[Rfam]
RNA: Small nucleolar RNA Z122
Organism: Camphora micrantha
RNA sequence: UUUGGGAAAUGAUGCUAGAUUGAUAAACAUGUUACCAGAGGCACAUACAUGGUUUGUGCUUUGCUGAAUAAGUUUGCACGUCAGUCUGAUCCCGAU
Number, nucleotide and partner (000 for none) at each position: 001u000002u095003u094004g093005g092006g091007a090008a000009a000010u000011g000012a000013u000014g000015c000016u000017a000018g000019a000020u000021u000022g000023a000024u000025a000026a000027a000028c000029a000030u000031g000032u000033u000034a000035c000036c000037a000038g000039a000040g000041g000042c000043a000044c000045a000046u000047a000048c000049a000050u000051g000052g000053u000054u000055u000056g000057u000058g000059c000060u000061u000062u000063g000064c000065u000066g000067a000068a000069u000070a000071a000072g000073u000074u000075u000076g000077c000078a000079c000080g000081u000082c000083a000084g000085u000086c000087u000088g000089a000090u007091c006092c005093c004094g003095a002096u000